Rfam assigns this 38-nucleotide RNA from Aliidiomarina taiwanensis to the family "JUMPstart RNA". It scores 47 bits against the family's covariance model. Rfam classes the family as a cis-regulatory element.

RNA sequence: CGGCAUAUUGGGAGCCACAACCCACGGGCGGUAGCGUG
Number, nucleotide and partner (000 for none) at each position: 001c000002g000003g000004c000005a000006u000007a000008u000009u024010g023011g022012g021013a000014g000015c000016c000017a000018c000019a000020a000021c012022c011023c010024a009025c000026g000027g000028g000029c000030g000031g000032u000033a000034g000035c000036g000037u000038g000